[Rfam]
RNA: MIR7504 microRNA precursor family
RNA sequence: AAUAGGAGAAUGACAAAUCAGAUUUUUCUCCUGAUUCUCAGGUUUUUUUUUCCUGAAAAAAUUCAAAUCCAACUAAAAAAAGCUGAAAAUUAGGAGGAAAAAUCAAAUUUGUCAUUUUCCUAUU
Dot-bracket structure: ((((((((((((((((((..((((((((((((((((.(.((...((((...........................))))...)).).))))))))).)))))))..))))))))))))))))))